[Rfam]
RNA sequence: UUCUAUCUUCGGGGCAGGGUGCAAUUCCCGACCGGCGGUGAUGAACGUAUGUUGUUCUAAGUCCGUGACCCGCAAUGCAUUAAGCAGAGCGGUGGAUCUGGUGAAAUUCCAGAGCCGACAGUUAAAGUCUGGAUGGGAGAAGAUUAUA
Number, nucleotide and partner (000 for none) at each position: 001u000002u000003c000004u000005a144006u143007c142008u141009u140010c139011g000012g000013g000014g000015c000016a000017g029018g028019g027020u000021g000022c000023a000024a000025u000026u000027c019028c018029c017030g000031a128032c127033c117034g116035g066036c065037g064038g063039u000040g000041a000042u000043g000044a000045a000046c000047g000048u000049a000050u000051g000052u000053u000054g000055u000056u000057c000058u000059a000060a000061g115062u114063c038064c037065g036066u035067g000068a000069c000070c092071c091072g000073c000074a000075a000076u000077g000078c000079a000080u000081u000082a000083a000084g000085c000086a000087g000088a000089g000090c000091g071092g070093u000094g000095g000096a000097u113098c112099u111100g110101g109102u000103g000104a000105a000106a000107u000108u000109c101110c100111a099112g098113a097114g062115c061116c034117g033118a000119c131120a130121g129122u000123u000124a000125a000126a000127g032128u031129c121130u120131g119132g000133a000134u000135g000136g000137g000138a000139g010140a009141a008142g007143a006144u005145u000146a000147u000148a000
This 148-nucleotide RNA sequence from Virgibacillus necropolis belongs to the Rfam family "FMN riboswitch aptamer (RFN element)".